Background:
This 87-nucleotide RNA sequence from Ottowia oryzae belongs to the Rfam family "Burkholderia RNA 7 (anti-hemB)". Its family is annotated with bacterial biofilm matrix and protein binding in the Gene Ontology. This RNA motif was identified by computational search in b-proteobacteria Burkholderia. Co-purified with Hfq, expression confirmed by Northern blot. For this family Rfam cites "Identification of small RNAs abundant in Burkholderia cenocepacia biofilms reveal putative regulators with a potential role in carbon and iron metabolism" (Sass et al., Sci Rep, 2017). NCBI's taxonomy places the organism under Bacteria, Pseudomonadati, Betaproteobacteria, Comamonadaceae, Ottowia.
RNA sequence: UCCCCGCUUUUCCUCCCUGAGCGGGAGCCUCGACGUGUGACAGCAGACAGGCUUUUUAACCCCGGCCCUCGUGCCGGGGUUUUUUCU
Numbered sequence: 001u002c003c004c005c006g007c008u009u010u011u012c013c014u015c016c017c018u019g020a021g022c023g024g025g026a027g028c029c030u031c032g033a034c035g036u037g038u039g040a041c042a043g044c045a046g047a048c049a050g051g052c053u054u055u056u057u058a059a060c061c062c063c064g065g066c067c068c069u070c071g072u073g074c075c076g077g078g079g080u081u082u083u084u085u086c087u
Stems, first nucleotide, its partner, number of pairs: 003025006027052004032048001060079007